[Rfam]
RNA sequence: CCAGCCGGCUGGACGGCCGCUCCCGUCACAUGUCGAAAGACGGCGGGGGAGGAAAGUCCGGGCUCCACGGAGAAACGGUGCCGGAUAACGUCCGGCGGGAGUGAUCCCAGGGAAAGUGCCACAGAAAACAGACCGCCCCGCCUGCAGUGCGGCUCGCGCGACGAAGCGCGACGGAGCCGCAGUGCUGGCGGGGUAAGGGUGAAACGGUGGGGUAAGAGCCCACCGCGUCUCUGGCAACAGCGACGGCACGGCAAACCCCACCGGGAGCAAGACCGAAUAGGAACGACGCGGUCGGUCCGUCGCAAGACGGGUCGCCAGCCCUCUCCGGGCCGGUCGUUCGGGUAGGUUGCUAGAGGCGGCCCGCAAGGGUCGUCCCAGAGGAAUGGUCGUCCGGCGGUCAAUCCGCUGACAGAACCCGGCUUACAGGCCGGCUGGCACU
Numbered sequence: 001c002c003a004g005c006c007g008g009c010u011g012g013a014c015g016g017c018c019g020c021u022c023c024c025g026u027c028a029c030a031u032g033u034c035g036a037a038a039g040a041c042g043g044c045g046g047g048g049g050a051g052g053a054a055a056g057u058c059c060g061g062g063c064u065c066c067a068c069g070g071a072g073a074a075a076c077g078g079u080g081c082c083g084g085a086u087a088a089c090g091u092c093c094g095g096c097g098g099g100a101g102u103g104a105u106c107c108c109a110g111g112g113a114a115a116g117u118g119c120c121a122c123a124g125a126a127a128a129c130a131g132a133c134c135g136c137c138c139c140g141c142c143u144g145c146a147g148u149g150c151g152g153c154u155c156g157c158g159c160g161a162c163g164a165a166g167c168g169c170g171a172c173g174g175a176g177c178c179g180c181a182g183u184g185c186u187g188g189c190g191g192g193g194u195a196a197g198g199g200u201g202a203a204a205c206g207g208u209g210g211g212g213u214a215a216g217a218g219c220c221c222a223c224c225g226c227g228u229c230u231c232u233g234g235c236a237a238c239a240g241c242g243a244c245g246g247c248a249c250g251g252c253a254a255a256c257c258c259c260a261c262c263g264g265g266a267g268c269a270a271g272a273c274c275g276a277a278u279a280g281g282a283a284c285g286a287c288g289c290g291g292u293c294g295g296u297c298c299g300u301c302g303c304a305a306g307a308c309g310g311g312u313c314g315c316c317a318g319c320c321c322u323c324u325c326c327g328g329g330c331c332g333g334u335c336g337u338u339c340g341g342g343u344a345g346g347u348u349g350c351u352a353g354a355g356g357c358g359g360c361c362c363g364c365a366a367g368g369g370u371c372g373u374c375c376c377a378g379a380g381g382a383a384u385g386g387u388c389g390u391c392c393g394g395c396g397g398u399c400a401a402u403c404c405g406c407u408g409a410c411a412g413a414a415c416c417c418g419g420c421u422u423a424c425a426g427g428c429c430g431g432c433u434g435g436c437a438c439u
Stems, first nucleotide, its partner, number of pairs: 001435010011424001012391007020049008054422003058419005063267004072325002076263005081095005096110001097108004111258002116256002118252003133198002135194008206224006225247001226245004231240003271348004281339006318330004355374008
RNA: Bacterial RNase P class A